[Rfam]
RNA sequence: UAAAUAAAGGGUGAUGGAGUUCACCAUAAUCGCAUAGUGCUAAUGACUCCUACAGGAUA
Numbered sequence: 001u002a003a004a005u006a007a008a009g010g011g012u013g014a015u016g017g018a019g020u021u022c023a024c025c026a027u028a029a030u031c032g033c034a035u036a037g038u039g040c041u042a043a044u045g046a047c048u049c050c051u052a053c054a055g056g057a058u059a
Stems, first nucleotide, its partner, number of pairs: 010025004016050006032040002
RNA: Fluoride riboswitch aptamer (crcB RNA motif)